[Rfam]
Nucleotides: 085
Base pairs, nucleotide, nucleotide: 001085002084003083004082005081
Number, partner (000 for none) and nucleotide at each position: 001085a002084u003083g004082g005081g006000g007000a008000u009000g010000a011000u012000g013000a014000g015000a016000a017000a018000a019000u020000u021000c022000a023000g024000a025000c026000g027000g028000a029000u030000u031000c032000c033000c034000a035000a036000u037000g038000a039000u040000u041000u042000c043000u044000c045000u046000u047000a048000a049000g050000a051000g052000a053000a054000g055000g056000u057000g058000a059000u060000c061000u062000u063000a064000c065000a066000a067000c068000c069000a070000g071000c072000u073000a074000c075000u076000u077000c078000u079000g080000a081005c082004u083003c084002a085001u